[Rfam]
RNA sequence: UGCUCGUGCCUUUCAGGCAUCCUCUCCCAAACUUUCAAGCCCGGUCAUUAUGACCGGGCUUUUUUCUUGCCUGAA
Numbered sequence: 001u002g003c004u005c006g007u008g009c010c011u012u013u014c015a016g017g018c019a020u021c022c023u024c025u026c027c028c029a030a031a032c033u034u035u036c037a038a039g040c041c042c043g044g045u046c047a048u049u050a051u052g053a054c055c056g057g058g059c060u061u062u063u064u065u066c067u068u069g070c071c072u073g074a075a
Stems, first nucleotide, its partner, number of pairs: 008018004038060009

The record is a 75-nucleotide sequence from Qipengyuania atrilutea, which matches "Makes More Granules Regulator RNA (mmgR)" in Rfam. Rfam's curators write: SuhB later renamed mmgR (makes more granules regulator) was a putative non-coding RNA found multiple times in the Agrobacterium tumefaciens genome and related alpha-proteobacteria. The source organism's lineage runs through Bacteria, Pseudomonadota, Alphaproteobacteria, Erythrobacteraceae and Qipengyuania.